[Rfam]
RNA sequence: GCCUGGAAUAGGAAGACAGAGAGGGCCUAAGAACAGUGGGAACGGGAACAUAGAGGAAAGCCUAGUCUGUCUGUUUCCUCCUCUAUCUAGCGACAAAGGUGGAAGCCUGGUUUGGUGUUUCCCGAUGCCUCCCAUUCCUUUCGUGCUUAAGCACUCCUUUCUUUUCCUGUGGCUU
Numbered sequence: 001g002c003c004u005g006g007a008a009u010a011g012g013a014a015g016a017c018a019g020a021g022a023g024g025g026c027c028u029a030a031g032a033a034c035a036g037u038g039g040g041a042a043c044g045g046g047a048a049c050a051u052a053g054a055g056g057a058a059a060g061c062c063u064a065g066u067c068u069g070u071c072u073g074u075u076u077c078c079u080c081c082u083c084u085a086u087c088u089a090g091c092g093a094c095a096a097a098g099g100u101g102g103a104a105g106c107c108u109g110g111u112u113u114g115g116u117g118u119u120u121c122c123c124g125a126u127g128c129c130u131c132c133c134a135u136u137c138c139u140u141u142c143g144u145g146c147u148u149a150a151g152c153a154c155u156c157c158u159u160u161c162u163u164u165u166c167c168u169g170u171g172g173c174u175u
Stems, first nucleotide, its partner, number of pairs: 010165004015160002021156003026151001028149004033144002038139005044133004049127003053123001055122002058120004